[Rfam]
RNA sequence: GGAAGUCAUUUGGGGUGCCGAAAGGCUGAGAGGCGGCAGUGCCAACCCAUUGAACCUGCUCUGGGUAAUACCAGCGAAGGGAAAUGCAACAACGCUAUU
Numbered sequence: 001g002g003a004a005g006u007c008a009u010u011u012g013g014g015g016u017g018c019c020g021a022a023a024g025g026c027u028g029a030g031a032g033g034c035g036g037c038a039g040u041g042c043c044a045a046c047c048c049a050u051u052g053a054a055c056c057u058g059c060u061c062u063g064g065g066u067a068a069u070a071c072c073a074g075c076g077a078a079g080g081g082a083a084a085u086g087c088a089a090c091a092a093c094g095c096u097a098u099u
Stems, first nucleotide, its partner, number of pairs: 007086004011049004017026003033042003055080003061074004

Shown here is a 99-nucleotide RNA from Desulfotruncus arcticus, a member of the family "TPP riboswitch aptamer (THI element)". A search with the family's covariance model found it, with a score of 68 bits. The family's consensus secondary structure is taken from published work.